[Rfam]
The record is a 172-nucleotide RNA, which matches "manA RNA" in Rfam. It is annotated as a cis-regulatory element.

RNA sequence: UAAGGAAGUAGCUCUUCCUUAUCGGGUAUGGCCGAAUAAGUCCGCCACGGACUAAGGCACAGGGCACGCAAACCAAGAACCGACUGGUGGAGGAAUGCGUGACUGGUAACGCGUCUACACUGUAGUGGCAUAACGCGUUUGGAGGUAUACAGCAAGGCCUCCUACCCACCUU
Numbered sequence: 001u002a003a004g005g006a007a008g009u010a011g012c013u014c015u016u017c018c019u020u021a022u023c024g025g026g027u028a029u030g031g032c033c034g035a036a037u038a039a040g041u042c043c044g045c046c047a048c049g050g051a052c053u054a055a056g057g058c059a060c061a062g063g064g065c066a067c068g069c070a071a072a073c074c075a076a077g078a079a080c081c082g083a084c085u086g087g088u089g090g091a092g093g094a095a096u097g098c099g100u101g102a103c104u105g106g107u108a109a110c111g112c113g114u115c116u117a118c119a120c121u122g123u124a125g126u127g128g129c130a131u132a133a134c135g136c137g138u139u140u141g142g143a144g145g146u147a148u149a150c151a152g153c154a155a156g157g158c159c160u161c162c163u164a165c166c167c168a169c170c171u172u
Base pairs, nucleotide, nucleotide: 001021002020003019004018005017006016007015008014024167025166026165027164028163031058032057040052041051042050043049044048062104063103065101066100067099068098073093074092108139109138110137111136112135113134114133115128116127117126118125120152121151122150123149141162142161143160144159145158